[Rfam]
RNA sequence: AAUUCGCACUCACCCAACGUGUGGCAGGAGCGGGGGAACCAGGUAGUCCGCCGUACGGGAAUUCCCGUACGGCUAGGGGUGAAGUCGCGCCACCGGCGCGGCCGGGCAGCUCCAGCCCGAACCCGACAGCUCACCUCGCAGGCGCCGGAGAGGAAAUAG
Numbered sequence: 001a002a003u004u005c006g007c008a009c010u011c012a013c014c015c016a017a018c019g020u021g022u023g024g025c026a027g028g029a030g031c032g033g034g035g036g037a038a039c040c041a042g043g044u045a046g047u048c049c050g051c052c053g054u055a056c057g058g059g060a061a062u063u064c065c066c067g068u069a070c071g072g073c074u075a076g077g078g079g080u081g082a083a084g085u086c087g088c089g090c091c092a093c094c095g096g097c098g099c100g101g102c103c104g105g106g107c108a109g110c111u112c113c114a115g116c117c118c119g120a121a122c123c124c125g126a127c128a129g130c131u132c133a134c135c136u137c138g139c140a141g142g143c144g145c146c147g148g149a150g151a152g153g154a155a156a157u158a159g
Base pairs, nucleotide, nucleotide: 005144006143007142009141014028015027030139031138032137033136034135035134040076077124078123079122085101086100087099088098104118105117106116107115
The record is a 159-nucleotide sequence from Streptomyces kanasensis, which matches "c-di-AMP riboswitch aptamer (ydaO/yuaA leader)" in Rfam. The base pairs follow the family's consensus structure.